Shown here is a 127-nucleotide RNA from Bacillaceae bacterium SAS-127, a member of the family "PyrR binding site". The family's RNA type in Rfam is cis-regulatory element.
[Rfam]
RNA sequence: AUGACCUUUAAAAACAGUCCCGUGAGGCUGAGAAGGUAUCGGAUUGUAAGAGUAGACAUAAGGAUAAAAUUGUGUCUUUCUUAUGUGAAAUUUGACCUCUCACCCAUGUGGCGAGAGGUUUUUGUUU
Number, nucleotide and partner (000 for none) at each position: 001a000002u000003g000004a037005c036006c035007u034008u033009u032010a000011a000012a000013a000014a000015c030016a029017g028018u027019c026020c000021c000022g000023u000024g000025a000026g019027g018028c017029u016030g015031a000032g009033a008034a007035g006036g005037u004038a000039u000040c000041g000042g000043a000044u000045u000046g000047u000048a000049a000050g081051a000052g079053u000054a077055g076056a075057c074058a073059u072060a071061a070062g000063g000064a000065u000066a000067a000068a000069a000070u061071u060072g059073u058074g057075u056076c055077u054078u000079u052080c000081u050082u000083a000084u000085g000086u000087g000088a000089a000090a000091u000092u000093u000094g120095a119096c118097c117098u116099c115100u114101c113102a000103c111104c110105c000106a000107u000108g000109u000110g104111g103112c000113g101114a100115g099116a098117g097118g096119u095120u094121u000122u000123u000124g000125u000126u000127u000
The source organism's lineage runs through Bacteria, Bacillati, Bacillota, Bacilli and Bacillaceae. Pairs were carried over by alignment from the consensus structure, which is taken from published work.